[Rfam]
RNA sequence: CGAUGAGGUAGAGGCGCAUUCUAGUAUGAGUAGUCAAUUGGAGGAUGACAACAACGACAAUUGAUGAAAGGACUGUUUGCCGAAGUGUAAUAAGAACGUCAUGCUUAUUAUGCUGGUAUGUUUCUGAAUAAGAAAUAUACUGUCAUGCGAACCGGAUAGAUGGAUUGCAUGAUGCGCUACUGAUCGA
Numbered sequence: 001c002g003a004u005g006a007g008g009u010a011g012a013g014g015c016g017c018a019u020u021c022u023a024g025u026a027u028g029a030g031u032a033g034u035c036a037a038u039u040g041g042a043g044g045a046u047g048a049c050a051a052c053a054a055c056g057a058c059a060a061u062u063g064a065u066g067a068a069a070g071g072a073c074u075g076u077u078u079g080c081c082g083a084a085g086u087g088u089a090a091u092a093a094g095a096a097c098g099u100c101a102u103g104c105u106u107a108u109u110a111u112g113c114u115g116g117u118a119u120g121u122u123u124c125u126g127a128a129u130a131a132g133a134a135a136u137a138u139a140c141u142g143u144c145a146u147g148c149g150a151a152c153c154g155g156a157u158a159g160a161u162g163g164a165u166u167g168c169a170u171g172a173u174g175c176g177c178u179a180c181u182g183a184u185c186g187a
Stems, first nucleotide, its partner, number of pairs: 007181005016080003021075001023074003033065008084114011115141011143172007